[Rfam]
RNA sequence: AGGCAGAUGAUGAGACUUCUGGAUUCCCCUUCCAACUGCGGUGUGAGGAAAAGUCCUGUUUCUGAUGCU
Numbered sequence: 001a002g003g004c005a006g007a008u009g010a011u012g013a014g015a016c017u018u019c020u021g022g023a024u025u026c027c028c029c030u031u032c033c034a035a036c037u038g039c040g041g042u043g044u045g046a047g048g049a050a051a052a053g054u055c056c057u058g059u060u061u062c063u064g065a066u067g068c069u
Base pairs, nucleotide, nucleotide: 002069003068004067005066

The record is a 69-nucleotide RNA from Ceratodon purpureus, which matches "Small nucleolar RNA snoR60" in Rfam. The family is grouped with related families in Rfam's "SNORD101 clan". NCBI's taxonomy places the organism under Eukaryota, Viridiplantae, Bryophyta, Dicranidae, Ceratodon. Its family is annotated with nucleolus and RNA processing in the Gene Ontology. Pairs were carried over by alignment from the consensus structure, which was predicted with PFOLD.